[Rfam]
Annotation: The record is a 63-nucleotide RNA from Cylindrospermum stagnale, which matches "Nitrogen stress-induced RNA 1" in Rfam. A reference for the family is Ionescu et al. (2010), "Heterocyst-specific transcription of NsiR1, a non-coding RNA encoded in a tandem array of direct repeats in cyanobacteria", J Mol Biol. The match comes from Rfam's covariance-model search (69 bits). The family's RNA type in Rfam is small RNA.
RNA sequence: UGGUAGAUGCACCCUGAUAACUAAACUCCCCCGGUUGGCUAACACCCAUUGGGGGGUUUUUUU
Number, nucleotide and partner (000 for none) at each position: 001u000002g013003g012004u011005a000006g000007a000008u000009g000010c000011a004012c003013c002014c000015u000016g000017a000018u000019a000020a000021c000022u000023a000024a000025a000026c000027u000028c055029c054030c053031c052032c051033g050034g049035u048036u000037g046038g045039c000040u000041a000042a000043c000044a000045c038046c037047c000048a035049u034050u033051g032052g031053g030054g029055g028056g000057u000058u000059u000060u000061u000062u000063u000